[Rfam]
RNA sequence: UUGCACCAGGCAAGUCCUACACAACUAGCUCCUGUUGAAUCCUCCAGGGCGGGAACGCAGCAAAGGUAAAUGGUCGUAGCAGUGUGAUGUAGGUAGCUUGCCUUUUU
Numbered sequence: 001u002u003g004c005a006c007c008a009g010g011c012a013a014g015u016c017c018u019a020c021a022c023a024a025c026u027a028g029c030u031c032c033u034g035u036u037g038a039a040u041c042c043u044c045c046a047g048g049g050c051g052g053g054a055a056c057g058c059a060g061c062a063a064a065g066g067u068a069a070a071u072g073g074u075c076g077u078a079g080c081a082g083u084g085u086g087a088u089g090u091a092g093g094u095a096g097c098u099u100g101c102c103u104u105u106u107u
Stems, first nucleotide, its partner, number of pairs: 008103008017092005022086002024083002
Dot-bracket structure: .......((((((((.(((((((((........................................................)).)).)))))...))))))))....
This 107-nucleotide RNA from Xanthomarina arctica belongs to the Rfam family "Bacteroidales small SRP". Taxonomically the source falls in Xanthomarina (Bacteria, Pseudomonadati, Flavobacteriales, Flavobacteriaceae). Gene Ontology terms of the family: SRP-dependent cotranslational protein targeting to membrane, signal sequence recognition and signal recognition particle, plasma membrane targeting. Pairs were carried over by alignment from the consensus structure, which is taken from published work. The match comes from Rfam's covariance-model search (106 bits). Rfam classes the family as a non-coding RNA gene.